[Rfam]
RNA sequence: AGCCCCUAGAAGUCUUAAUUUAUUUCUCAACCUUUGCUCUGUAAGGGUCUUUGGUAUUUUUAAGUGACUGCUUCUUCCAUUCU
Numbered sequence: 001a002g003c004c005c006c007u008a009g010a011a012g013u014c015u016u017a018a019u020u021u022a023u024u025u026c027u028c029a030a031c032c033u034u035u036g037c038u039c040u041g042u043a044a045g046g047g048u049c050u051u052u053g054g055u056a057u058u059u060u061u062a063a064g065u066g067a068c069u070g071c072u073u074c075u076u077c078c079a080u081u082c083u
Stems, first nucleotide, its partner, number of pairs: 009077003015063004024054002030048008

Overview: The record is an 83-nucleotide RNA sequence from Jaculus jaculus, which matches "Stem loopII regulatory element in POLB" in Rfam. Rfam links the family to the GO term regulation of RNA stability. The literature on the family includes a 2007 paper in Nucleic Acids Res by Sarnowska et al., "Hairpin structure within the 3'UTR of DNA polymerase beta mRNA acts as a post-transcriptional regulatory element and interacts with Hax-1".